[Rfam]
RNA sequence: CACCAGGUUGAUUCUGCCUGACGUAGAUGCUAGCCUCCGAGGCUAAGCCAUGCAUGCCCGUGACGCAAGGAACGGCGAACGGCCCAGUAAUACUGCGAUGAUCUGCUCCGCGCGGACGAUAACUACGGGAAACUGUGGCUAAGAGCGCGGAUUGAGACGCAGCCCUAUCAGCAAGUUGGUAGUGUAACGGACUACCAAGGCGGCGACGGGUGACGGGAAAUCAGGGUUUGAUUCCGGAGAGGGAGCCUGAGAGAUGGCUCCCACGUCCAAGGACGGCAGCAGGCGCGAAACUUGCCCACUCUCUUGCGAGGAGGCAGUUACGAGGCGUGACGGAAGGGCGCACUGUAAAGACGUGCGCGAACGCGAUUGGAGGGCAAGUUCGGUGCCAGCAGCCGCGGUAAUACCGACUCCAAGAGUGUCUAUGGUGGAUGCUG
Numbered sequence: 001c002a003c004c005a006g007g008u009u010g011a012u013u014c015u016g017c018c019u020g021a022c023g024u025a026g027a028u029g030c031u032a033g034c035c036u037c038c039g040a041g042g043c044u045a046a047g048c049c050a051u052g053c054a055u056g057c058c059c060g061u062g063a064c065g066c067a068a069g070g071a072a073c074g075g076c077g078a079a080c081g082g083c084c085c086a087g088u089a090a091u092a093c094u095g096c097g098a099u100g101a102u103c104u105g106c107u108c109c110g111c112g113c114g115g116a117c118g119a120u121a122a123c124u125a126c127g128g129g130a131a132a133c134u135g136u137g138g139c140u141a142a143g144a145g146c147g148c149g150g151a152u153u154g155a156g157a158c159g160c161a162g163c164c165c166u167a168u169c170a171g172c173a174a175g176u177u178g179g180u181a182g183u184g185u186a187a188c189g190g191a192c193u194a195c196c197a198a199g200g201c202g203g204c205g206a207c208g209g210g211u212g213a214c215g216g217g218a219a220a221u222c223a224g225g226g227u228u229u230g231a232u233u234c235c236g237g238a239g240a241g242g243g244a245g246c247c248u249g250a251g252a253g254a255u256g257g258c259u260c261c262c263a264c265g266u267c268c269a270a271g272g273a274c275g276g277c278a279g280c281a282g283g284c285g286c287g288a289a290a291c292u293u294g295c296c297c298a299c300u301c302u303c304u305u306g307c308g309a310g311g312a313g314g315c316a317g318u319u320a321c322g323a324g325g326c327g328u329g330a331c332g333g334a335a336g337g338g339c340g341c342a343c344u345g346u347a348a349a350g351a352c353g354u355g356c357g358c359g360a361a362c363g364c365g366a367u368u369g370g371a372g373g374g375c376a377a378g379u380u381c382g383g384u385g386c387c388a389g390c391a392g393c394c395g396c397g398g399u400a401a402u403a404c405c406g407a408c409u410c411c412a413a414g415a416g417u418g419u420c421u422a423u424g425g426u427g428g429a430u431g432c433u434g
Stems, first nucleotide, its partner, number of pairs: 004020005022424010033326005039319002041286001047284003051281003056076002059074003083239001085237001093162005099156001102155002107151007123138006164210003171201002176198008214236004218229004241262006264275004292316001294315003300311004338358006367413006380407004389396002